L31-Actinobacteria ribosomal protein leader: a 48-nucleotide RNA sequence from Parafrankia discariae.
RNA sequence: CCGGCUCCGGUUCACGCCGUCCGCUCCCGCGGUGGCGACCCGGCGGCC
Numbered sequence: 001c002c003g004g005c006u007c008c009g010g011u012u013c014a015c016g017c018c019g020u021c022c023g024c025u026c027c028c029g030c031g032g033u034g035g036c037g038a039c040c041c042g043g044c045g046g047c048c
Base pairs, nucleotide, nucleotide: 003048004047005046007043008042009041010040015037016036017035018034019033021032022031023030
A reference for the family is Eckert and Weinberg (2020), "Discovery of 20 novel ribosomal leader candidates in bacteria and archaea", BMC Microbiol. Its Rfam clan is "Ribosomal Protein L31 Leader clan".